[Rfam]
RNA: Bacterial small subunit ribosomal RNA, nucleotides 1 to 589
Organism: Candidatus Arsenophonus lipoptenae
RNA sequence: UAAUUGAAGAGUUUGAUCAUGGCUCAGAUUGAACGCUGGCGGCAAGCCUAACACAUGCAAGUCGAGCGGCAACGUUAAAAGAGUGUGUACUUUGAGUGUAUACUUUUUUUGACGGCGAGCGGCGGACGGGUGAGUAAAGUAUGGGGAUCUGCCCGGAGGAGAGGGAUAACCAUUGGAAACGAUGGCUAAUACCGCAUAAUCUCUAAGGAGCAAAGUGGGGGACUAUUUUUAAAUAGCCUCAUACCUUCGGAUGAACCCAUAUGAGAUUAGCUAGUAGGUAGGGUAAGGGCCUACCUAGGCAACGAUCUCUAGCUGGUCUGAGAGGAUGGUCAGCCACACUGGGACUGAGACACGGCCCAGACUCCUACGGGAGGCAGCAGUGGGGAAUAUUGCACAAUGGGCGAAAGCCUGAUGCAGCUAUGCCGCGUGUAUGAAGAAGGCCUUAGGGUUGUAAAGUACUUUCAGUUGUGAGGAAAGUAUUAUAAUUAAUAAAUAUAGUAGUUGACGUUAGCAACAGAAGAAGCACCGGCUAACUCCGUGCCAGCAGCCGCGGUAAUACGGAGGGUGCAAGCGUUAGUCAGAAUUACUG
Numbered sequence: 001u002a003a004u005u006g007a008a009g010a011g012u013u014u015g016a017u018c019a020u021g022g023c024u025c026a027g028a029u030u031g032a033a034c035g036c037u038g039g040c041g042g043c044a045a046g047c048c049u050a051a052c053a054c055a056u057g058c059a060a061g062u063c064g065a066g067c068g069g070c071a072a073c074g075u076u077a078a079a080a081g082a083g084u085g086u087g088u089a090c091u092u093u094g095a096g097u098g099u100a101u102a103c104u105u106u107u108u109u110u111g112a113c114g115g116c117g118a119g120c121g122g123c124g125g126a127c128g129g130g131u132g133a134g135u136a137a138a139g140u141a142u143g144g145g146g147a148u149c150u151g152c153c154c155g156g157a158g159g160a161g162a163g164g165g166a167u168a169a170c171c172a173u174u175g176g177a178a179a180c181g182a183u184g185g186c187u188a189a190u191a192c193c194g195c196a197u198a199a200u201c202u203c204u205a206a207g208g209a210g211c212a213a214a215g216u217g218g219g220g221g222a223c224u225a226u227u228u229u230u231a232a233a234u235a236g237c238c239u240c241a242u243a244c245c246u247u248c249g250g251a252u253g254a255a256c257c258c259a260u261a262u263g264a265g266a267u268u269a270g271c272u273a274g275u276a277g278g279u280a281g282g283g284u285a286a287g288g289g290c291c292u293a294c295c296u297a298g299g300c301a302a303c304g305a306u307c308u309c310u311a312g313c314u315g316g317u318c319u320g321a322g323a324g325g326a327u328g329g330u331c332a333g334c335c336a337c338a339c340u341g342g343g344a345c346u347g348a349g350a351c352a353c354g355g356c357c358c359a360g361a362c363u364c365c366u367a368c369g370g371g372a373g374g375c376a377g378c379a380g381u382g383g384g385g386a387a388u389a390u391u392g393c394a395c396a397a398u399g400g401g402c403g404a405a406a407g408c409c410u411g412a413u414g415c416a417g418c419u420a421u422g423c424c425g426c427g428u429g430u431a432u433g434a435a436g437a438a439g440g441c442c443u444u445a446g447g448g449u450u451g452u453a454a455a456g457u458a459c460u461u462u463c464a465g466u467u468g469u470g471a472g473g474a475a476a477g478u479a480u481u482a483u484a485a486u487u488a489a490u491a492a493a494u495a496u497a498g499u500a501g502u503u504g505a506c507g508u509u510a511g512c513a514a515c516a517g518a519a520g521a522a523g524c525a526c527c528g529g530c531u532a533a534c535u536c537c538g539u540g541c542c543a544g545c546a547g548c549c550g551c552g553g554u555a556a557u558a559c560g561g562a563g564g565g566u567g568c569a570a571g572c573g574u575u576a577g578u579c580a581g582a583a584u585u586a587c588u589g
Base pairs, nucleotide, nucleotide: 009025010024011023012022013021027579028578029577030576032575033574034573035572036571037570039426040425041424042423043422044421045419046418047384052382053381054380056379057378058377061123062122063121066120067119069116070115074113075112076111077110078109079108080107081106082105083104130337131336132335139262140261141260142259143258144257145256148254149253153250154249155248156247157246158245159244161195163193164192170185171184172183173182174181175180201210202209203208215242216241217240218239219238220237263309264308265307270300271299272298275297276296277295278294279293280292281291282290312334313333314332315331316327317326318325319324339360340359341358342357343356362373363372364371365370390416392415393414394413398411399410400409401408402407429459430458431457432456439450440449441448442447463520465515466514467513468512469511473506479499480498481497482496483495484494523568524567525566526565527564534563535562536561537560538559544551545550